[Rfam]
RNA sequence: GUAAUCUUUUGGGGCAGGGUGUAAUUCCCGACCGACGGUAAGAGGUGAACGUUAAACCUUAAGUCCGUGACCCGGAUCAAUCAAUGAUUGUGAAGGUGGAUUUGGUGAAAAUCCAAAGCCGACAGUUAAAGUCUGGAUGGGAAAAAGAUUAA
Numbered sequence: 001g002u003a004a005u006c007u008u009u010u011g012g013g014g015c016a017g018g019g020u021g022u023a024a025u026u027c028c029c030g031a032c033c034g035a036c037g038g039u040a041a042g043a044g045g046u047g048a049a050c051g052u053u054a055a056a057c058c059u060u061a062a063g064u065c066c067g068u069g070a071c072c073c074g075g076a077u078c079a080a081u082c083a084a085u086g087a088u089u090g091u092g093a094a095g096g097u098g099g100a101u102u103u104g105g106u107g108a109a110a111a112u113c114c115a116a117a118g119c120c121g122a123c124a125g126u127u128a129a130a131g132u133c134u135g136g137a138u139g140g141g142a143a144a145a146a147g148a149u150u151a152a
Stems, first nucleotide, its partner, number of pairs: 003150008017029003031132002033121002035068004063119002072096002101117005123135003